A member of the RNA family "TPP riboswitch aptamer (THI element)" from Brachybacterium faecium, 109 nucleotides long. The match comes from Rfam's covariance-model search (55 bits). The family's consensus secondary structure is taken from published work. Rfam's curators write: Vitamin B(1) in its active form thiamin pyrophosphate (TPP) is an essential coenzyme that is synthesised by coupling of pyrimidine and thiazole moieties in bacteria.
RNA sequence: UGCGCCGUGCACGGGAGUCCGGUGAGCCGGGCUGAGAGGGAGUUCUCCAACUCCGACCGUAGAACCUGACCCGGAUCAUGCCGGCGCAGGAAGCUCCGCCAGGCGACCG
Numbered sequence: 001u002g003c004g005c006c007g008u009g010c011a012c013g014g015g016a017g018u019c020c021g022g023u024g025a026g027c028c029g030g031g032c033u034g035a036g037a038g039g040g041a042g043u044u045c046u047c048c049a050a051c052u053c054c055g056a057c058c059g060u061a062g063a064a065c066c067u068g069a070c071c072c073g074g075a076u077c078a079u080g081c082c083g084g085c086g087c088a089g090g091a092a093g094c095u096c097c098g099c100c101a102g103g104c105g106a107c108c109g
Stems, first nucleotide, its partner, number of pairs: 007096001009094002011060004017032005039054005065090004071084004